[Rfam]
RNA sequence: UCCACCGCGAGGGGAAUCUGAAGGAAGGUGAAGGCAAAUCUCUGGUCUGACGAACAGAAACUACAUCAGGCUAUGCACAGGGGUAAGGCCGCAAAACAGGUCAAAGCCCAAUAACUGUACGGAACUGUGCAUAGUAAAUGUGGCAGAUAUGUGGAGAGAAAGAAACGUGU
Numbered sequence: 001u002c003c004a005c006c007g008c009g010a011g012g013g014g015a016a017u018c019u020g021a022a023g024g025a026a027g028g029u030g031a032a033g034g035c036a037a038a039u040c041u042c043u044g045g046u047c048u049g050a051c052g053a054a055c056a057g058a059a060a061c062u063a064c065a066u067c068a069g070g071c072u073a074u075g076c077a078c079a080g081g082g083g084u085a086a087g088g089c090c091g092c093a094a095a096a097c098a099g100g101u102c103a104a105a106g107c108c109c110a111a112u113a114a115c116u117g118u119a120c121g122g123a124a125c126u127g128u129g130c131a132u133a134g135u136a137a138a139u140g141u142g143g144c145a146g147a148u149a150u151g152u153g154g155a156g157a158g159a160a161a162g163a164a165a166c167g168u169g170u
Base pairs, nucleotide, nucleotide: 001015002014003013005012006011027170035162039157040156041155042154043153044152045148046147047146048145049144061143062142063141064140065139070135071134072133074131075130076129077128078127079126080125081109082108083107084106087102088101089100090099

The record is a 170-nucleotide RNA sequence, which matches "Group II catalytic intron D1-D4-3" in Rfam. Rfam describes the family as follows. Group II introns are found in rRNA, tRNA and mRNA of organelles in fungi, plants and protists, and also in mRNA in bacteria. Pairs were carried over by alignment from the consensus structure.